[Rfam]
RNA sequence: GAAAAUGAUGAGAUAUCUGGAAUCUCGUUCGUCUGAACUGCUGUUGAGAACUUAAAACUGCUGACA
Numbered sequence: 001g002a003a004a005a006u007g008a009u010g011a012g013a014u015a016u017c018u019g020g021a022a023u024c025u026c027g028u029u030c031g032u033c034u035g036a037a038c039u040g041c042u043g044u045u046g047a048g049a050a051c052u053u054a055a056a057a058c059u060g061c062u063g064a065c066a
Stems, first nucleotide, its partner, number of pairs: 023049005030043002033040001